[Rfam]
RNA sequence: GGAUGAAUAUGAUGAAAGUAAUAAAAGGUAUUGAUGAAAUUUCUUCGUUUUAUUUAUAAUAGUCUUUGCUACGUUCUUUCUGAUUCAUUC
Numbered sequence: 001g002g003a004u005g006a007a008u009a010u011g012a013u014g015a016a017a018g019u020a021a022u023a024a025a026a027g028g029u030a031u032u033g034a035u036g037a038a039a040u041u042u043c044u045u046c047g048u049u050u051u052a053u054u055u056a057u058a059a060u061a062g063u064c065u066u067u068g069c070u071a072c073g074u075u076c077u078u079u080c081u082g083a084u085u086c087a088u089u090c
Stems, first nucleotide, its partner, number of pairs: 004087004
RNA: Small nucleolar RNA R32/R81/Z41